[Rfam]
mir-19 microRNA precursor family: an 86-nucleotide RNA sequence from Austrofundulus limnaeus.
It scores 61 bits against the family's covariance model.
RNA sequence: GUUUACAGGGAGCUUUGUUGGUUUGCUCUCAGCUUUUUUUUUUUGCUGCCAUCGCUGUGCAAAUCCAUGCAAAGCUCUCUGCACCU
Numbered sequence: 001g002u003u004u005a006c007a008g009g010g011a012g013c014u015u016u017g018u019u020g021g022u023u024u025g026c027u028c029u030c031a032g033c034u035u036u037u038u039u040u041u042u043u044u045g046c047u048g049c050c051a052u053c054g055c056u057g058u059g060c061a062a063a064u065c066c067a068u069g070c071a072a073a074g075c076u077c078u079c080u081g082c083a084c085c086u
Stems, first nucleotide, its partner, number of pairs: 004083001006081013020066002022063005028057001031056003